[Rfam]
RNA sequence: UACCGAGGACGACCUCGACACUUCCCAACUUUUCGGCCGGGACGACCCGC
Numbered sequence: 001u002a003c004c005g006a007g008g009a010c011g012a013c014c015u016c017g018a019c020a021c022u023u024c025c026c027a028a029c030u031u032u033u034c035g036g037c038c039g040g041g042a043c044g045a046c047c048c049g050c
Stems, first nucleotide, its partner, number of pairs: 001020001004017005038049004
Background:
Guanidine-II riboswitch aptamer (mini-ykkC): a 50-nucleotide sequence from Devosia sp. A8/3-2. Pairs were carried over by alignment from the consensus structure, which is taken from published work. Lineage of the source: Bacteria > Pseudomonadota > Alphaproteobacteria > Hyphomicrobiales > Devosia. Rfam links the family to the GO term regulation of gene expression.